[Rfam]
Nucleotides: 125
Stems, first nucleotide, its partner, number of pairs: 006120005016028003030105002032094002034048004043092002052069002074090005096108003
Number, partner (000 for none) and nucleotide at each position: 001000a002000g003000g004000a005000a006120g007119c008118u009117c010116c011000g012000g013000g014000g015000u016028c017027g018026g019000u020000g021000a022000a023000a024000g025000u026018c027017c028016g029000a030105g031104c032094c033093g034048g035047c036046g037045g038000u039000g040000a041000a042000a043092g044091u045037c046036c047035g048034c049000g050000a051000c052069c053068c054000g055000c056000c057000u058000g059000c060000u061000a062000u063000c064000a065000g066000g067000u068053g069052g070000c071000u072000g073000a074090a075089u076088c077087g078086g079000u080000g081000u082000a083000a084000u085000u086078c087077c088076g089075a090074u091044a092043c093033c094032g095000a096108c097107g098106g099000u100000g101000a102000a103000a104031g105030u106098c107097c108096g109000g110000a111000u112000g113000g114000g115000a116010g117009g118008a119007g120006c121000g122000c123000g124000u125000c

The record is a 125-nucleotide sequence from Schaalia turicensis, which matches "FMN riboswitch aptamer (RFN element)" in Rfam. Its family is annotated with FMN binding in the Gene Ontology. NCBI's taxonomy places the organism under Bacteria, Actinomycetota, Actinomycetes, Actinomycetaceae, Schaalia turicensis. Rfam describes the family as follows. The RFN element is a highly conserved domain that is found frequently in the 5'-untranslated regions of prokaryotic mRNAs that encode for flavin mononucleotide (FMN) biosynthesis and transport proteins.